[Rfam]
The family of this 89-nucleotide RNA sequence from Devosia oryzisoli is "Glycine riboswitch aptamer".
The pairing is the family consensus, mapped onto this sequence.
The organism belongs to Devosia, within Bacteria.
A search with the family's covariance model found it, with a score of 69 bits.
RNA sequence: CCCCCGACUGCGGGAGAGACCGGCUCUGCGCCGGCGCCGAAGGAGCAACCGCCCCGGAAACUCUCAGGCCGAAGGACCGCAGUCUGCAU
Numbered sequence: 001c002c003c004c005c006g007a008c009u010g011c012g013g014g015a016g017a018g019a020c021c022g023g024c025u026c027u028g029c030g031c032c033g034g035c036g037c038c039g040a041a042g043g044a045g046c047a048a049c050c051g052c053c054c055c056g057g058a059a060a061c062u063c064u065c066a067g068g069c070c071g072a073a074g075g076a077c078c079g080c081a082g083u084c085u086g087c088a089u
Stems, first nucleotide, its partner, number of pairs: 006084008020034004036069003039065002043063003049057002